[Rfam]
RNA sequence: ACAUCACCAUCAUCAUCCUGACUAGUCUUUCGGGAGGAUACGCCUCACUCUGGAAGACAGUAAUAAUUCUUCCAGCGUUUGAUAUAAAUACAGAAUUCAAACCCUUGGAAGAGCAACGCUUCCGAGGGUUUUUUCGU
Dot-bracket structure: .........(.(((..(((((........)))))..))).......)..((((((((..........))))))))...................(...(((((((((((((.......)))))))))))))..)...

The family of this 137-nucleotide RNA from Photobacterium lipolyticum is "Histidine operon leader". At least 6 amino acid operons are known to be regulated by attenuation. NCBI's taxonomy places the organism under Bacteria, Pseudomonadota, Gammaproteobacteria, Vibrionales, Photobacterium. The family's RNA type in Rfam is cis-regulatory leader. On this family, see Kolter and Yanofsky, Annu Rev Genet 1982: "Attenuation in amino acid biosynthetic operons". Pairs were carried over by alignment from the consensus structure, which is taken from published work.